Description: The family of this 136-nucleotide RNA sequence from Aeromicrobium yanjiei is "FMN riboswitch aptamer (RFN element)". The match comes from Rfam's covariance-model search (93 bits).

[Rfam]
RNA sequence: CGCGUGCUCCGGGGUCGGUGAGAGUCCGAACCGGCGGUGACAGUCCGCGACCCGCGGUCCCGCUUUCACAGGGGGCCCGGUUGAGCCGGUGGAAUUCCGGCACCGACGGUGAAAGUCCGGAUGGAAGGAGCGCGUG
Numbered sequence: 001c002g003c004g005u006g007c008u009c010c011g012g013g014g015u016c017g018g019u020g021a022g023a024g025u026c027c028g029a030a031c032c033g034g035c036g037g038u039g040a041c042a043g044u045c046c047g048c049g050a051c052c053c054g055c056g057g058u059c060c061c062g063c064u065u066u067c068a069c070a071g072g073g074g075g076c077c078c079g080g081u082u083g084a085g086c087c088g089g090u091g092g093a094a095u096u097c098c099g100g101c102a103c104c105g106a107c108g109g110u111g112a113a114a115g116u117c118c119g120g121a122u123g124g125a126a127g128g129a130g131c132g133c134g135u136g
Base pairs, nucleotide, nucleotide: 003134004133005132006131007130008129009128010127016028017027018026030116031115032105033104034048035047036046037045043103044102052080053079085101086100087099088098089097107119108118109117